[Rfam]
RNA sequence: UCGGCAGCGGGAGGCUCUGACACGCGGUCCACACCCACGGUCGCCGGGACCGCGCCGAGCCACUGGCGAGACCGACCCGCAGGAAG
Numbered sequence: 001u002c003g004g005c006a007g008c009g010g011g012a013g014g015c016u017c018u019g020a021c022a023c024g025c026g027g028u029c030c031a032c033a034c035c036c037a038c039g040g041u042c043g044c045c046g047g048g049a050c051c052g053c054g055c056c057g058a059g060c061c062a063c064u065g066g067c068g069a070g071a072c073c074g075a076c077c078c079g080c081a082g083g084a085a086g
Stems, first nucleotide, its partner, number of pairs: 001086001005082001007080005013061003023054007039073002041069005
The family of this 86-nucleotide RNA sequence is "c-di-GMP-II-GAG riboswitch aptamer". Rfam's curators put it in the seed alignment. For this family Rfam cites "Bioinformatic analysis of riboswitch structures uncovers variant classes with altered ligand specificity" (Weinberg et al., Proc Natl Acad Sci U S A, 2017). Gene Ontology terms of the family: cyclic-di-GMP binding and regulation of gene expression.